[Rfam]
RNA sequence: CGGGCGGAAGCCGAAAAGCCCGAAAGAGAGUAGGCC
Numbered sequence: 001c002g003g004g005c006g007g008a009a010g011c012c013g014a015a016a017a018g019c020c021c022g023a024a025a026g027a028g029a030g031u032a033g034g035c036c
Base pairs, nucleotide, nucleotide: 002021003020004019005018010035011034012033
Rfam assigns this 36-nucleotide sequence from Niastella vici to the family "DUF805b RNA". The source organism's lineage runs through Bacteria, Chitinophagia, Chitinophagales, Chitinophagaceae and Niastella. By type it is a cis-regulatory element. Its Rfam clan is "DUF805 clan". The base pairs follow the family's consensus structure, which is taken from published work.